[Rfam]
RNA sequence: CCUGUCGCUUGACCAAAGGCAGAAUGCACCAAAGCGUAAAACAAUCUGAUUGGGUGAGUUGGUCGCACCACCAAAGAGAGAACGAAAGCCGACACGCCUGCUGACCCUGUGCAUUGGGUGGCAGGUAUGGCGGUUAGUAGCGUUCGCCCACGACACAGGC
Numbered sequence: 001c002c003u004g005u006c007g008c009u010u011g012a013c014c015a016a017a018g019g020c021a022g023a024a025u026g027c028a029c030c031a032a033a034g035c036g037u038a039a040a041a042c043a044a045u046c047u048g049a050u051u052g053g054g055u056g057a058g059u060u061g062g063u064c065g066c067a068c069c070a071c072c073a074a075a076g077a078g079a080g081a082a083c084g085a086a087a088g089c090c091g092a093c094a095c096g097c098c099u100g101c102u103g104a105c106c107c108u109g110u111g112c113a114u115u116g117g118g119u120g121g122c123a124g125g126u127a128u129g130g131c132g133g134u135u136a137g138u139a140g141c142g143u144u145c146g147c148c149c150a151c152g153a154c155a156c157a158g159g160c
Stems, first nucleotide, its partner, number of pairs: 002022005011064004025113005051074001054071003060065001082143003088134004093129002096126007104119003146160003